[Rfam]
RNA sequence: AUCGUUCAUCUUCUGACCGCCGCCGCAAGACAGCCAGAGGACGGAAGUAGGGGACUCCUGAAGGAACGCACA
Number, nucleotide and partner (000 for none) at each position: 001a000002u000003c068004g067005u066006u065007c064008a000009u041010c040011u039012u038013c037014u036015g035016a000017c000018c000019g000020c000021c000022g000023c000024c000025g000026c000027a000028a000029g000030a000031c000032a000033g000034c000035c015036a014037g013038a012039g011040g010041a009042c000043g000044g069045a000046a000047g000048u000049a000050g059051g058052g057053g000054a000055c000056u000057c052058c051059u050060g000061a000062a000063g000064g007065a006066a005067c004068g003069c044070a000071c000072a000
RNA: Glutamine riboswitch aptamer (glnA leader)
Organism: [Limnothrix rosea] IAM M-220